[Rfam]
RNA sequence: AGAAGUUUGAGUGGGCUUGACUCUAGUACGAGAGGACCGAGUUGAACGAACCGCUAGUGUAUCUGUUGUCUCGCCAGGGGCAUUGCAGAGUAGCUACGUUCGGUUAAGAUAAGCACUGAAGGCAUAUAAGUGCGAAACUUGCCACAAGAUGAGACUUCUUUUAAGGGCCGUGGAAGACGACCACGUUGAUAGGCUACAGAUGUAAAGACAGCAAUGUCAUAGUCGAGUAGUACUAAUUACCCGUAG
Numbered sequence: 001a002g003a004a005g006u007u008u009g010a011g012u013g014g015g016c017u018u019g020a021c022u023c024u025a026g027u028a029c030g031a032g033a034g035g036a037c038c039g040a041g042u043u044g045a046a047c048g049a050a051c052c053g054c055u056a057g058u059g060u061a062u063c064u065g066u067u068g069u070c071u072c073g074c075c076a077g078g079g080g081c082a083u084u085g086c087a088g089a090g091u092a093g094c095u096a097c098g099u100u101c102g103g104u105u106a107a108g109a110u111a112a113g114c115a116c117u118g119a120a121g122g123c124a125u126a127u128a129a130g131u132g133c134g135a136a137a138c139u140u141g142c143c144a145c146a147a148g149a150u151g152a153g154a155c156u157u158c159u160u161u162u163a164a165g166g167g168c169c170g171u172g173g174a175a176g177a178c179g180a181c182c183a184c185g186u187u188g189a190u191a192g193g194c195u196a197c198a199g200a201u202g203u204a205a206a207g208a209c210a211g212c213a214a215u216g217u218c219a220u221a222g223u224c225g226a227g228u229a230g231u232a233c234u235a236a237u238u239a240c241c242c243g244u245a246g
Stems, first nucleotide, its partner, number of pairs: 001159008011145004017045007047102005055096003062089005067082006106140003113133005165242003169185005190235003193231005199224002203219001207218004

This 246-nucleotide part of an RNA from Flavobacteriaceae bacterium Ap0902 belongs to the Rfam family "Bacterial large subunit ribosomal RNA". Gene Ontology terms of the family: ribosome and structural constituent of ribosome.